[Rfam]
RNA sequence: GGAUGGCAUCUGUAAGCUAGAGAUGUUACUCGAUACAAUCUUCCUAUAAAAAAAUUCUGUGCUUUCCUUUUCACAGUUCUCUAAUGUAGUCUGUGAAUCUCAAACUGACAGAAACAGUA
Numbered sequence: 001g002g003a004u005g006g007c008a009u010c011u012g013u014a015a016g017c018u019a020g021a022g023a024u025g026u027u028a029c030u031c032g033a034u035a036c037a038a039u040c041u042u043c044c045u046a047u048a049a050a051a052a053a054a055u056u057c058u059g060u061g062c063u064u065u066c067c068u069u070u071u072c073a074c075a076g077u078u079c080u081c082u083a084a085u086g087u088a089g090u091c092u093g094u095g096a097a098u099c100u101c102a103a104a105c106u107g108a109c110a111g112a113a114a115c116a117g118u119a
Stems, first nucleotide, its partner, number of pairs: 001031002005027007056112003070097007078089001080088001
The record is a 119-nucleotide RNA from Chenopodium quinoa, which matches "Small nucleolar RNA snoR104" in Rfam. NCBI's taxonomy places the organism under Eukaryota, Embryophyta, Caryophyllales, Atripliceae, Chenopodium. It scores 68 bits against the family's covariance model. For this family Rfam cites "Experimental RNomics: identification of 140 candidates for small non-messenger RNAs in the plant Arabidopsis thaliana" (Marker et al., Curr Biol, 2002).